t44 RNA: an 88-nucleotide sequence from Plasticicumulans lactativorans. A search with the family's covariance model found it, with a score of 64 bits. The family's RNA type in Rfam is small RNA. Lineage of the source: Bacteria > Pseudomonadati > Pseudomonadota > Candidatus Competibacteraceae > Plasticicumulans. The base pairs follow the family's consensus structure, which was predicted with LocARNA. Rfam describes the family as follows. This family consists of a number of bacterial RNA genes of between 135 and 170 bases in length.

RNA sequence: CGGCAAUCAAUCUCACUUCUCACACGCAGCCGACACAUGCGGCCGGGUGCCCGCGAGGGUCGCCGCAUGGGGCGCGUGGAGGCAAAAC
Number, nucleotide and partner (000 for none) at each position: 001c000002g000003g000004c000005a000006a000007u000008c000009a000010a000011u000012c000013u000014c000015a000016c000017u000018u000019c000020u000021c000022a000023c078024a077025c076026g075027c074028a000029g073030c072031c071032g000033a000034c000035a000036c069037a068038u067039g066040c065041g064042g063043c062044c000045g000046g000047g000048u000049g060050c059051c058052c057053g000054c000055g000056a000057g052058g051059g050060u049061c000062g043063c042064c041065g040066c039067a038068u037069g036070g000071g031072g030073c029074g027075c026076g025077u024078g023079g000080a000081g000082g000083c000084a000085a000086a000087a000088c000